RNA: Bacterial RNase P class A
Organism: Parahaliea aestuarii
RNA sequence: CGAGUCGGUCAGGCGAUCGCUUCGCCGUCAGCUUCGGCUGCGGGCGGGGAGGAAAGUCCGGGCUCCAUAGGGCAGGGUGCCAGGUAACGCCUGGGGGGCGCGAGCCUACGGAAAGUGCAACAGAAAGGAUACCGCCUGGCUACUUCGGUGGCCCGGUAAGGGUGAAAUGGUGCGGUAAGAGCGCACCGCGCGGCUGGCAACAGGCGCGGCGAUGGUAAACCCCACUCGGAGCAAGACCAAAUAGGAAUCCAUACGCUGCGGCCCGCAGUGGAUUCGGGUAGGUCGCUACAGGCAGGCGGUGACGCCUGUCGCAGAUGAAUGAUCGUCCACGACAGAACCCGGCUUAUCGACCGACUCAACUU
Numbered sequence: 001c002g003a004g005u006c007g008g009u010c011a012g013g014c015g016a017u018c019g020c021u022u023c024g025c026c027g028u029c030a031g032c033u034u035c036g037g038c039u040g041c042g043g044g045c046g047g048g049g050a051g052g053a054a055a056g057u058c059c060g061g062g063c064u065c066c067a068u069a070g071g072g073c074a075g076g077g078u079g080c081c082a083g084g085u086a087a088c089g090c091c092u093g094g095g096g097g098g099c100g101c102g103a104g105c106c107u108a109c110g111g112a113a114a115g116u117g118c119a120a121c122a123g124a125a126a127g128g129a130u131a132c133c134g135c136c137u138g139g140c141u142a143c144u145u146c147g148g149u150g151g152c153c154c155g156g157u158a159a160g161g162g163u164g165a166a167a168u169g170g171u172g173c174g175g176u177a178a179g180a181g182c183g184c185a186c187c188g189c190g191c192g193g194c195u196g197g198c199a200a201c202a203g204g205c206g207c208g209g210c211g212a213u214g215g216u217a218a219a220c221c222c223c224a225c226u227c228g229g230a231g232c233a234a235g236a237c238c239a240a241a242u243a244g245g246a247a248u249c250c251a252u253a254c255g256c257u258g259c260g261g262c263c264c265g266c267a268g269u270g271g272a273u274u275c276g277g278g279u280a281g282g283u284c285g286c287u288a289c290a291g292g293c294a295g296g297c298g299g300u301g302a303c304g305c306c307u308g309u310c311g312c313a314g315a316u317g318a319a320u321g322a323u324c325g326u327c328c329a330c331g332a333c334a335g336a337a338c339c340c341g342g343c344u345u346a347u348c349g350a351c352c353g354a355c356u357c358a359a360c361u362u
Stems, first nucleotide, its partner, number of pairs: 002357009011347001012327007020049007054345003058342005063231004070264004075227005080094005095109001096107004110222002115220002117216002132161002134157003138153006169187006188210001189208004194203003235284004245275006255269005291310008